The record is a 99-nucleotide RNA from Trema orientale, which matches "MIR535 microRNA precursor family" in Rfam.
NCBI's taxonomy places the organism under Eukaryota, Streptophytina, Euphyllophyta, Magnoliopsida, Trema.
Gene Ontology terms of the family: miRNA-mediated post-transcriptional gene silencing and RISC complex.
The family has 20 seed sequences and 544 matches in Rfam 15.1.
RNA sequence: GCAAUUGUAUGACAACGAGGGAGAGCACGCAUGUGCACAGUCACGUUUUCUUUCCAUGAAUAUCAACACAAGCGUGCUCUCUCUCGUUGUCAUUCAAUC
Numbered sequence: 001g002c003a004a005u006u007g008u009a010u011g012a013c014a015a016c017g018a019g020g021g022a023g024a025g026c027a028c029g030c031a032u033g034u035g036c037a038c039a040g041u042c043a044c045g046u047u048u049u050c051u052u053u054c055c056a057u058g059a060a061u062a063u064c065a066a067c068a069c070a071a072g073c074g075u076g077c078u079c080u081c082u083c084u085c086g087u088u089g090u091c092a093u094u095c096a097a098u099c
Stems, first nucleotide, its partner, number of pairs: 010092005016086002020082002023079001025077006032070003